[Rfam]
RNA: Glutamine-II riboswitch aptamer
RNA sequence: GUCCGUUCAUCCUGAUAUGGGACGCAUGCAAUCAAGUCAUGGAACGGGGACUUGGU
Dot-bracket structure: ...[[[[[.(((((...)))))........((((((((...]]]]].)).))))))